Shown here is a 92-nucleotide sequence from Oryzicola mucosus, a member of the family "Rhizobiales sRNA Atu_Ti1". Pairs were carried over by alignment from the consensus structure, which was predicted with WAR.

[Rfam]
RNA sequence: GUCCAUGUAGCGGCGGACGACAACCACAGACCUACGAGCGCAAUGGCGGUGAUCGGCCAAUAUCGUGAUGUCAUCAUUGCGAGGCCGGCGGC
Numbered sequence: 001g002u003c004c005a006u007g008u009a010g011c012g013g014c015g016g017a018c019g020a021c022a023a024c025c026a027c028a029g030a031c032c033u034a035c036g037a038g039c040g041c042a043a044u045g046g047c048g049g050u051g052a053u054c055g056g057c058c059a060a061u062a063u064c065g066u067g068a069u070g071u072c073a074u075c076a077u078u079g080c081g082a083g084g085c086c087g088g089c090g091g092c
Stems, first nucleotide, its partner, number of pairs: 001018004024046003032038001049092002053088006063082007